Overview:
A member of the RNA family "Plastid-psbN 5UTR RNA" from Nostoc sp. 'Peltigera malacea cyanobiont' DB3992, 61 nucleotides long. Taxonomically the source falls in Nostoc cyanobionts (Bacteria, Cyanobacteriota, Nostocales, Nostocaceae). Plastid psbN is a non-coding RNA (ncRNA) recognised in plastids. It was reported as a conserved 11 stem-loop in the prime untranslated region (5UTR) of psbN genes. It has been reported that the motif is retained in a subset of mature transcripts in barley, which can suggests a possible role in transcript alternative 5 prime processing. By type it is a cis-regulatory element.
RNA sequence: AAAAACAGCCAUCACAGGGGUAGUACCCCAACCUGGAGCCACUUUCCCAUAUUCCGAGUUA
Numbered sequence: 001a002a003a004a005a006c007a008g009c010c011a012u013c014a015c016a017g018g019g020g021u022a023g024u025a026c027c028c029c030a031a032c033c034u035g036g037a038g039c040c041a042c043u044u045u046c047c048c049a050u051a052u053u054c055c056g057a058g059u060u061a
Stems, first nucleotide, its partner, number of pairs: 017045005023039002026036002